[Rfam]
RNA sequence: AUGUAUUCUGUUCGUUUAAGAUAAGCUGGCAAUAAAAAAGCGGUAUGAUCAUCCACAAGGGUGGGCUUUUUUUUGUGCUUAUUUUACGAAUGAGACAUAGAUACUAGUGAAGUGUAACCAUCUGAGGUUAUACGAUUUUAUCAAUGUCUUUUAAUGUUAAUAUGCAGACUAAAGCUUGCACUGUGGAUUUUAGCCUGCAUUUUUUAU
Numbered sequence: 001a002u003g004u005a006u007u008c009u010g011u012u013c014g015u016u017u018a019a020g021a022u023a024a025g026c027u028g029g030c031a032a033u034a035a036a037a038a039a040g041c042g043g044u045a046u047g048a049u050c051a052u053c054c055a056c057a058a059g060g061g062u063g064g065g066c067u068u069u070u071u072u073u074u075g076u077g078c079u080u081a082u083u084u085u086a087c088g089a090a091u092g093a094g095a096c097a098u099a100g101a102u103a104c105u106a107g108u109g110a111a112g113u114g115u116a117a118c119c120a121u122c123u124g125a126g127g128u129u130a131u132a133c134g135a136u137u138u139u140a141u142c143a144a145u146g147u148c149u150u151u152u153a154a155u156g157u158u159a160a161u162a163u164g165c166a167g168a169c170u171a172a173a174g175c176u177u178g179c180a181c182u183g184u185g186g187a188u189u190u191u192a193g194c195c196u197g198c199a200u201u202u203u204u205u206a207u
Stems, first nucleotide, its partner, number of pairs: 006095002009092007019084008029076004034071001036070002038067001040066002049064005096146003100142003109138003113134004162200006169193002172190003176186004
The record is a 207-nucleotide sequence from Sinanaerobacter chloroacetimidivorans, which matches "Enterococcus sRNA 1300" in Rfam. The source organism's lineage runs through Bacteria, Bacillati, Peptostreptococcales, Anaerovoracaceae and Sinanaerobacter. About the family: Expressed in mid and late exponential phases of growth. Expression remained uniform under daptomycin exposure.